RNA sequence: GGCGGCACAUUUCAAUGAUUCUUCAAGUGAUACUAUAUAUAUUUCUCACUUUUAUCGGCAACUUUCUCUGCCAUACGUUCGUUGCUUCGUUUGUUUUUGGUCGGGUGUUCCCCCAAAAGCCCAGGGAUACCCUGCUAAAACCAAACGAGGUGUUUUAUUGGGCUUGAACGUAUGCCAGAGAAAGUUCUUUCCCACAUUUUAAGUUCCUCAAAAGCAAAGGAAUCUCUGUACUUUAACAAAUUUUGUCAUAGCUAAAACCUGUACUUAUCGAAAUGCAAAAUGUUUCUCUUGGUUGGUAAUCAUACAAAACUGUAUUAUUACCAGCUAAAGAUUGAACAUUUAAACAAUUCCGAAUACGCCAUGACAAAAGCGUUGGCUUGUUUCGACAUUUGGACAUUCUUUCUACAAGAAAUGUCAGCAAAUUGUCUGCCAAGACAAACCAAACAUUUGUUUCGUUCUAGGAUUCUUUUACUGAAUUAUUUAUAUUAUAUCAUAUAUUUAUAUCCUAAGUUUCCAUUUGAAUAUCACUUCAAGUUGCAUUGAAAUCUGCUUAGCU
Numbered sequence: 001g002g003c004g005g006c007a008c009a010u011u012u013c014a015a016u017g018a019u020u021c022u023u024c025a026a027g028u029g030a031u032a033c034u035a036u037a038u039a040u041a042u043u044u045c046u047c048a049c050u051u052u053u054a055u056c057g058g059c060a061a062c063u064u065u066c067u068c069u070g071c072c073a074u075a076c077g078u079u080c081g082u083u084g085c086u087u088c089g090u091u092u093g094u095u096u097u098u099g100g101u102c103g104g105g106u107g108u109u110c111c112c113c114c115a116a117a118a119g120c121c122c123a124g125g126g127a128u129a130c131c132c133u134g135c136u137a138a139a140a141c142c143a144a145a146c147g148a149g150g151u152g153u154u155u156u157a158u159u160g161g162g163c164u165u166g167a168a169c170g171u172a173u174g175c176c177a178g179a180g181a182a183a184g185u186u187c188u189u190u191c192c193c194a195c196a197u198u199u200u201a202a203g204u205u206c207c208u209c210a211a212a213a214g215c216a217a218a219g220g221a222a223u224c225u226c227u228g229u230a231c232u233u234u235a236a237c238a239a240a241u242u243u244u245g246u247c248a249u250a251g252c253u254a255a256a257a258c259c260u261g262u263a264c265u266u267a268u269c270g271a272a273a274u275g276c277a278a279a280a281u282g283u284u285u286c287u288c289u290u291g292g293u294u295g296g297u298a299a300u301c302a303u304a305c306a307a308a309a310c311u312g313u314a315u316u317a318u319u320a321c322c323a324g325c326u327a328a329a330g331a332u333u334g335a336a337c338a339u340u341u342a343a344a345c346a347a348u349u350c351c352g353a354a355u356a357c358g359c360c361a362u363g364a365c366a367a368a369a370g371c372g373u374u375g376g377c378u379u380g381u382u383u384c385g386a387c388a389u390u391u392g393g394a395c396a397u398u399c400u401u402u403c404u405a406c407a408a409g410a411a412a413u414g415u416c417a418g419c420a421a422a423u424u425g426u427c428u429g430c431c432a433a434g435a436c437a438a439a440c441c442a443a444a445c446a447u448u449u450g451u452u453u454c455g456u457u458c459u460a461g462g463a464u465u466c467u468u469u470u471a472c473u474g475a476a477u478u479a480u481u482u483a484u485a486u487u488a489u490a491u492c493a494u495a496u497a498u499u500u501a502u503a504u505c506c507u508a509a510g511u512u513u514c515c516a517u518u519u520g521a522a523u524a525u526c527a528c529u530u531c532a533a534g535u536u537g538c539a540u541u542g543a544a545a546u547c548u549g550c551u552u553a554g555c556u
Stems, first nucleotide, its partner, number of pairs: 001556003005550003009546003013542005022533002025530007061185007069177002072174008084151010095140001097138004104132002106129002109126003202478005216470008225462004230456002236451004242369001243367003247363003251359002253356002260352002270350003278341008287331004291325001293323001296321005370445001373443003378439002389422004394415002397411004
RNA: Bicoid 3'-UTR regulatory element
Organism: Drosophila pseudoobscura